[Rfam]
RNA: Small nucleolar RNA R12
Organism: Aquilegia coerulea
RNA sequence: UGAUGGGUGAUGAAAGAAAUCGUUCGGAUUCCCAAUGAUUUAUUAGUAAAUAUGAUCUUUAAACCAGCUACUUCUGACACA
Numbered sequence: 001u002g003a004u005g006g007g008u009g010a011u012g013a014a015a016g017a018a019a020u021c022g023u024u025c026g027g028a029u030u031c032c033c034a035a036u037g038a039u040u041u042a043u044u045a046g047u048a049a050a051u052a053u054g055a056u057c058u059u060u061a062a063a064c065c066a067g068c069u070a071c072u073u074c075u076g077a078c079a080c081a
Stems, first nucleotide, its partner, number of pairs: 001081002004079002